[Rfam]
This 130-nucleotide sequence from Leptonychotes weddellii belongs to the Rfam family "Small nucleolar RNA SNORA1". Lineage of the source: Eukaryota > Vertebrata > Theria > Laurasiatheria > Leptonychotes. Gene Ontology terms of the family: RNA processing and nucleolus. Rfam's curators write: ACA1 is a member of the H/ACA class of snoRNA that guide the sites of modification of uridines to pseudouridines. A search with the family's covariance model found it, with a score of 73 bits. It is annotated as an H/ACA-box small nucleolar RNA.

RNA sequence: AGCCUCGUUCAAGAUGGAAAUGGGCCGUCGUUGAUGGUGUCCGGAUAUGGUGACUGUGGCUACACUGGGACACGGGCGCUUCCAUCCCAGCAAGUGUACUGCAGGGGUGACCACCAGACCCCUAACGGUC
Number, nucleotide and partner (000 for none) at each position: 001a000002g060003c059004c058005u000006c056007g055008u000009u000010c000011a000012a000013g000014a000015u000016g000017g000018a000019a000020a000021u043022g042023g041024g040025c039026c000027g000028u000029c000030g000031u000032u000033g000034a000035u000036g000037g000038u000039g025040u024041c023042c022043g021044g000045a000046u000047a000048u000049g000050g000051u000052g000053a000054c000055u007056g006057u000058g004059g003060c002061u000062a000063c000064a000065c000066u000067g000068g000069g000070a000071c000072a123073c000074g121075g120076g119077c000078g000079c000080u000081u000082c000083c109084a108085u107086c106087c105088c104089a000090g000091c000092a000093a000094g000095u000096g000097u000098a000099c000100u000101g000102c000103a000104g088105g087106g086107g085108u084109g083110a000111c000112c000113a000114c000115c000116a000117g000118a000119c076120c075121c074122c000123u072124a000125a000126c000127g000128g000129u000130c000